[Rfam]
The family of this 73-nucleotide sequence from Varanus komodoensis is "mir-27 microRNA precursor family".
On this family, see Yao et al., J Virol 2008: "MicroRNA profile of Marek's disease virus-transformed T-cell line MSB-1: predominance of virus-encoded microRNAs".
RNA sequence: CGAAAGGGCAGGGCUUAGCCCACCUGUGAACAGUGUUCAGCCAUGUUCACAGUGGCUAAGUUCCGCUCCUCAG
Numbered sequence: 001c002g003a004a005a006g007g008g009c010a011g012g013g014c015u016u017a018g019c020c021c022a023c024c025u026g027u028g029a030a031c032a033g034u035g036u037u038c039a040g041c042c043a044u045g046u047u048c049a050c051a052g053u054g055g056c057u058a059a060g061u062u063c064c065g066c067u068c069c070u071c072a073g
Stems, first nucleotide, its partner, number of pairs: 011063010026050007

The source organism's lineage runs through Eukaryota, Bilateria, Sauria, Squamata and Varanus. The match comes from Rfam's covariance-model search (73 bits).